The record is a 71-nucleotide RNA sequence, which matches "Twister_sister_ribozyme" in Rfam.
RNA sequence: GAGCAGGGCUAGGCCCAGUCCCGUGCAAGCCGGGACCGCCCCGAAAGGGGCGCGGCGCUCAACCUGCAUCA
Numbered sequence: 001g002a003g004c005a006g007g008g009c010u011a012g013g014c015c016c017a018g019u020c021c022c023g024u025g026c027a028a029g030c031c032g033g034g035a036c037c038g039c040c041c042c043g044a045a046a047g048g049g050g051c052g053c054g055g056c057g058c059u060c061a062a063c064c065u066g067c068a069u070c071a
Base pairs, nucleotide, nucleotide: 004066005065006064007063013056014055015054016029018036020034021033022032037052038051039050040049041048042047
A reference for the family is Weinberg et al. (2015), "New classes of self-cleaving ribozymes revealed by comparative genomics analysis", Nat Chem Biol. The family's consensus secondary structure is taken from published work.